[Rfam]
About this RNA:
The record is a 74-nucleotide sequence from Neodrepanis coruscans, which matches "Small nucleolar RNA SNORD19" in Rfam. The literature on the family includes a 2001 paper in EMBO J by Huttenhofer et al., "RNomics: an experimental approach that identifies 201 candidates for novel, small, non-messenger RNAs in mouse". The base pairs follow the family's consensus structure. Rfam links the family to the GO terms nucleolus and RNA processing. Rfam classes the family as a C/D-box small nucleolar RNA.
RNA sequence: GAGAAAUGAGGAUACUUACUUUGUCUUACUUCUGUAGUGAAGAGUUCAGAUCCAACUCUGAUCUCACACUGACA
Numbered sequence: 001g002a003g004a005a006a007u008g009a010g011g012a013u014a015c016u017u018a019c020u021u022u023g024u025c026u027u028a029c030u031u032c033u034g035u036a037g038u039g040a041a042g043a044g045u046u047c048a049g050a051u052c053c054a055a056c057u058c059u060g061a062u063c064u065c066a067c068a069c070u071g072a073c074a
Stems, first nucleotide, its partner, number of pairs: 001065004